[Rfam]
MIR396 microRNA precursor family: an 88-nucleotide sequence from Hibiscus syriacus. Gene Ontology terms of the family: miRNA-mediated post-transcriptional gene silencing and RISC complex.
Nucleotides: 088
Base pairs, nucleotide, nucleotide: 003085004084005083006082007081013075014074015073017071018070019069020068021067022066024064025063026062027061029059030058031057032056033055
Number, partner (000 for none) and nucleotide at each position: 001000g002000g003085u004084c005083a006082u007081g008000c009000u010000u011000u012000u013075c014074c015073a016000c017071a018070g019069c020068u021067u022066u023000c024064u025063u026062g027061a028000a029059c030058u031057u032056u033055c034000u035000u036000c037000c038000c039000a040000g041000u042000a043000u044000u045000a046000g047000c048000a049000c050000g051000c052000c053000a054000u055033g056032g057031a058030a059029g060000c061027u062026c063025a064024a065000g066022a067021a068020a069019g070018c071017u072000g073015u074014g075013g076000g077000a078000a079000a080000a081007c082006a083005u084004g085003a086000u087000g088000g
Source information
The family's consensus secondary structure was predicted with WAR. The organism belongs to Hibiscus, within Eukaryota. The literature on the family includes a 2005 paper in Plant Physiol by Xie et al., "Expression of Arabidopsis MIRNA genes".